[Rfam]
RNA sequence: CCAGCUUGAUCGCUGAGUCCUGAUAAGGGAGCGGGGGACCCAAUCGCAGAUAACGAUGUUUCGUUAUCUGCAUGGGGUGAAUCCUGGGUAAUCCGGGUAGGGCGACUCUCACGCCCGAAUCCGUCAGCUAACCUCGUAAGCGUGUAGAGAGGAGGA
Numbered sequence: 001c002c003a004g005c006u007u008g009a010u011c012g013c014u015g016a017g018u019c020c021u022g023a024u025a026a027g028g029g030a031g032c033g034g035g036g037g038a039c040c041c042a043a044u045c046g047c048a049g050a051u052a053a054c055g056a057u058g059u060u061u062c063g064u065u066a067u068c069u070g071c072a073u074g075g076g077g078u079g080a081a082u083c084c085u086g087g088g089u090a091a092u093c094c095g096g097g098u099a100g101g102g103c104g105a106c107u108c109u110c111a112c113g114c115c116c117g118a119a120u121c122c123g124u125c126a127g128c129u130a131a132c133c134u135c136g137u138a139a140g141c142g143u144g145u146a147g148a149g150a151g152g153a154g155g156a
Stems, first nucleotide, its partner, number of pairs: 011142004018030003031137006041074002075122003083097004100116004
RNA: c-di-AMP riboswitch aptamer (ydaO/yuaA leader)